[Rfam]
Shown here is a 135-nucleotide RNA from Marinithermofilum abyssi, a member of the family "FMN riboswitch aptamer (RFN element)". The base pairs follow the family's consensus structure, which is taken from published work. The organism belongs to Marinithermofilum, within Bacteria. About the family: The RFN element is a highly conserved domain that is found frequently in the 5'-untranslated regions of prokaryotic mRNAs that encode for flavin mononucleotide (FMN) biosynthesis and transport proteins.

RNA sequence: UACAUCCUUCGGGGCUGGGUGAAAUUCCCGACCGGCGGUGAUGGCGCUUGCGCCUCAGUCCGUGACCCGCCUUUGGCGGUGGACCUGGUGAAACUCCGGGACCGACAGUGAAAGUCUGGAUGGGAGAAGGAUGAA
Dot-bracket structure: ..((((((((......(((.......))).[[((((((...................[[))))...((.........))....(((((.......)))))]])).(((.....]]))).......))))))))..